A member of the RNA family "Small nucleolar RNA R21" from Populus deltoides, 76 nucleotides long.
RNA sequence: UGUCCCUAUGAAGAAUAGAACUAAAAGUAAAAGUAGUGGACUGAUUCUGCUUGAUGAAUAAUGCAUCUGAGGGAUG
Numbered sequence: 001u002g003u004c005c006c007u008a009u010g011a012a013g014a015a016u017a018g019a020a021c022u023a024a025a026a027g028u029a030a031a032a033g034u035a036g037u038g039g040a041c042u043g044a045u046u047c048u049g050c051u052u053g054a055u056g057a058a059u060a061a062u063g064c065a066u067c068u069g070a071g072g073g074a075u076g
Stems, first nucleotide, its partner, number of pairs: 001076006
The literature on the family includes a 2001 paper in J Mol Biol by Barneche et al., "Identification of 66 box C/D snoRNAs in Arabidopsis thaliana: extensive gene duplications generated multiple isoforms predicting new ribosomal RNA 2'-O-methylation sites". The family's consensus secondary structure was predicted with PFOLD.